[Rfam]
RNA sequence: UUAAAGUGGUGCAAAAUACGCGCCCUGCAAAAUAAGAUAUUAACCGACGUCAACGCGUCGGUUAUUUUUUUGC
Numbered sequence: 001u002u003a004a005a006g007u008g009g010u011g012c013a014a015a016a017u018a019c020g021c022g023c024c025c026u027g028c029a030a031a032a033u034a035a036g037a038u039a040u041u042a043a044c045c046g047a048c049g050u051c052a053a054c055g056c057g058u059c060g061g062u063u064a065u066u067u068u069u070u071u072g073c
Stems, first nucleotide, its partner, number of pairs: 011021002041064009